Nucleotides: 091
Stems, first nucleotide, its partner, number of pairs: 001043005010031008063091005069084004
Number, partner (000 for none) and nucleotide at each position: 001043c002042u003041g004040a005039c006000g007000g008000g009000a010031g011030g012029c013028u014027g015026c016025c017024u018000g019000u020000g021000g022000g023000a024017g025016g026015g027014c028013g029012g030011c031010c032000a033000g034000g035000u036000a037000u038000u039005g040004u041003c042002g043001g044000g045000u046000u047000c048000c049000g050000g051000c052000u053000g054000u055000u056000u057000c058000u059000c060000g061000g062000g063091u064090c065089g066088a067087c068000u069084g070083c071082c072081g073000a074000a075000c076000c077000c078000c079000g080000g081072c082071g083070g084069c085000u086000g087067g088066u089065c090064g091063g

The record is a 91-nucleotide sequence from Silicimonas algicola, which matches "Rhodo-rpoB RNA" in Rfam. The family's RNA type in Rfam is cis-regulatory element. The base pairs follow the family's consensus structure, which is taken from published work.